[Rfam]
tRNA: a 73-nucleotide RNA sequence from Bradymonas sediminis.
By type it is a transfer RNA.
Pairs were carried over by alignment from the consensus structure, which is taken from published work.
Gene Ontology term of the family: triplet codon-amino acid adaptor activity.
RNA sequence: GCCCUUGUAGCUCAGGCGGUAGAGCACUUCCAUGGUAAGGAAGGGGUCACCAGUUCGAUUCUGGUCAAGGGCU
Numbered sequence: 001g002c003c004c005u006u007g008u009a010g011c012u013c014a015g016g017c018g019g020u021a022g023a024g025c026a027c028u029u030c031c032a033u034g035g036u037a038a039g040g041a042a043g044g045g046g047u048c049a050c051c052a053g054u055u056c057g058a059u060u061c062u063g064g065u066c067a068a069g070g071g072c073u
Stems, first nucleotide, its partner, number of pairs: 001072007010025004027043005049065005